[Rfam]
RNA sequence: AUCUUUAUGCAGGGGCAUUACGUGUUUCAGUGAGGAUUCGUCCGAGAUCAUGUUUUUGCUGGUUGAAAACUUUAAACCUGACAGCUUCUCAAUGUUGGUGUCCUUGUGAUAUUUGAUGUUGAGAGAAUUUUUGGAAACUUUUUUUA
Numbered sequence: 001a002u003c004u005u006u007a008u009g010c011a012g013g014g015g016c017a018u019u020a021c022g023u024g025u026u027u028c029a030g031u032g033a034g035g036a037u038u039c040g041u042c043c044g045a046g047a048u049c050a051u052g053u054u055u056u057u058g059c060u061g062g063u064u065g066a067a068a069a070c071u072u073u074a075a076a077c078c079u080g081a082c083a084g085c086u087u088c089u090c091a092a093u094g095u096u097g098g099u100g101u102c103c104u105u106g107u108g109a110u111a112u113u114u115g116a117u118g119u120u121g122a123g124a125g126a127a128u129u130u131u132u133g134g135a136a137a138c139u140u141u142u143u144u145u146a
Stems, first nucleotide, its partner, number of pairs: 020053005027047002034043003086125013141146001
The family of this 146-nucleotide sequence from Lodderomyces elongisporus is "U4 spliceosomal RNA".
A reference for the family is Zwieb (1997), "The uRNA database", Nucleic Acids Res.
Pairs were carried over by alignment from the consensus structure, which is taken from published work.
NCBI's taxonomy places the organism under Eukaryota, Dikarya, Debaryomycetaceae, Lodderomyces, Lodderomyces elongisporus.